[Rfam]
RNA sequence: CCGUGCAGCCGGGGAGAUAGCGGUGCCCUGUACCUGCAAUCCGCUAAAGCAGGGGUGAUGCCAAGCCGAGGACUUCCCAUUGUGAAGCCGGCCUUUAAAAGUGGCGAUGACGCCCGGGUCUUACGCAACGAGAAUCUAUGAACCGUGUCAGGGCAGGAAUGCAGCAGCACUAAGUAGAACCUUUCGUGUGCCGUGAGGGUGCCUGGGCCGAGCUAACUGUAAAGGUAUCGUUCAUGAUGUCCGUUCGAAGCGAGGCGCACGG
Numbered sequence: 001c002c003g004u005g006c007a008g009c010c011g012g013g014g015a016g017a018u019a020g021c022g023g024u025g026c027c028c029u030g031u032a033c034c035u036g037c038a039a040u041c042c043g044c045u046a047a048a049g050c051a052g053g054g055g056u057g058a059u060g061c062c063a064a065g066c067c068g069a070g071g072a073c074u075u076c077c078c079a080u081u082g083u084g085a086a087g088c089c090g091g092c093c094u095u096u097a098a099a100a101g102u103g104g105c106g107a108u109g110a111c112g113c114c115c116g117g118g119u120c121u122u123a124c125g126c127a128a129c130g131a132g133a134a135u136c137u138a139u140g141a142a143c144c145g146u147g148u149c150a151g152g153g154c155a156g157g158a159a160u161g162c163a164g165c166a167g168c169a170c171u172a173a174g175u176a177g178a179a180c181c182u183u184u185c186g187u188g189u190g191c192c193g194u195g196a197g198g199g200u201g202c203c204u205g206g207g208c209c210g211a212g213c214u215a216a217c218u219g220u221a222a223a224g225g226u227a228u229c230g231u232u233c234a235u236g237a238u239g240u241c242c243g244u245u246c247g248a249a250g251c252g253a254g255g256c257g258c259a260c261g262g
Stems, first nucleotide, its partner, number of pairs: 001262006008056003011029004016024001018022001033053005061255002065251002070246004078239009090229002093224005101217002103214003112208008120197006126188002129186005135178005145170004153162003
A member of the RNA family "Bacterial large signal recognition particle RNA" from Blautia liquoris, 262 nucleotides long. Rfam's curators write: The signal recognition particle (SRP) is a universally conserved ribonucleoprotein involved in the co-translational targeting of proteins to membranes. By type it is a non-coding RNA gene. The literature on the family includes a 2003 paper in Nucleic Acids Res by Rosenblad et al., "SRPDB: Signal Recognition Particle Database". A search with the family's covariance model found it, with a score of 193 bits.